[Rfam]
RNA sequence: CAUGAAGAAGAUGAUCAUUCUCGUAGUAGGCGCGCGCAUGGGCAAGGCGGUGUAACCGCCGGGCGAAAUUCCCCCAUGCGCGACGAACAGGCUCCCUCGGGGGCCUUUUUUAUUGGCCGGAC
Numbered sequence: 001c002a003u004g005a006a007g008a009a010g011a012u013g014a015u016c017a018u019u020c021u022c023g024u025a026g027u028a029g030g031c032g033c034g035c036g037c038a039u040g041g042g043c044a045a046g047g048c049g050g051u052g053u054a055a056c057c058g059c060c061g062g063g064c065g066a067a068a069u070u071c072c073c074c075c076a077u078g079c080g081c082g083a084c085g086a087a088c089a090g091g092c093u094c095c096c097u098c099g100g101g102g103g104c105c106u107u108u109u110u111u112a113u114u115g116g117c118c119g120g121a122c
Base pairs, nucleotide, nucleotide: 029118030117031116033082034081035080036079037078038077039076040075041074042073046060047059048058049057050056063070087107089106090105091104092103093102094101095100
RNA: Rhizobiales sRNA Atu_C8
Organism: Aquibium carbonis